Notes:
Shown here is a 168-nucleotide sequence from Anaerofustis stercorihominis, a member of the family "glmS glucosamine-6-phosphate activated ribozyme aptamer". Rfam describes the family as follows. This entry contains a glucosamine-6-phosphate activated ribozyme that is found in the mRNA for GlmS. GlmS is an enzyme that uses fructose-6-phosphate and glutamine to generate glucosamine-6-phosphate. The ribozyme catalyses self cleavage of the glmS mRNA that is thought to regulate GlmS activity. Its family is annotated with regulation of gene expression and catalytic activity in the Gene Ontology. On this family, see Winkler et al., Nature 2004: "Control of gene expression by a natural metabolite-responsive ribozyme". Lineage of the source: Bacteria > Bacillati > Eubacteriales > Eubacteriaceae > Anaerofustis stercorihominis. The family's RNA type in Rfam is riboswitch.

[Rfam]
RNA sequence: UUUAUAGUUAAAGCGCCCGAACCGAAUUCCUAAAUAUAUAUUAAAAGGUUGACGAGGAAAAGGGUUUAUCGAUUUUUUCGGCGGAUGCCCUUUGGGAUGAAAGUGUUCCUUAAAGCUUAAAAAAACCGAGGAGUAAUUCUUGGGACAAAGUUAAGCUUAAACUUUAAG
Number, nucleotide and partner (000 for none) at each position: 001u000002u000003u000004a000005u000006a000007g000008u000009u000010a000011a000012a000013g000014c000015g000016c000017c000018c000019g000020a050021a049022c048023c047024g000025a000026a000027u043028u000029c000030c000031u000032a000033a000034a000035u000036a000037u000038a000039u000040a000041u000042u000043a027044a000045a000046a000047g023048g022049u021050u020051g000052a000053c000054g000055a000056g000057g000058a000059a000060a093061a092062g091063g090064g089065u000066u000067u000068a000069u081070c080071g079072a078073u000074u000075u000076u000077u000078u072079c071080g070081g069082c000083g000084g000085a000086u000087g000088c000089c064090c063091u062092u061093u060094g109095g108096g107097a106098u105099g000100a000101a000102a000103g000104u000105g098106u097107u096108c095109c094110u000111u000112a000113a158114a157115g156116c155117u154118u153119a152120a000121a000122a000123a000124a000125a000126c143127c142128g141129a140130g139131g138132a137133g000134u000135a000136a000137u132138u131139c130140u129141u128142g127143g126144g000145a000146c000147a000148a000149a000150g000151u000152u119153a118154a117155g116156c115157u114158u113159a000160a000161a000162c000163u000164u000165u000166a000167a000168g000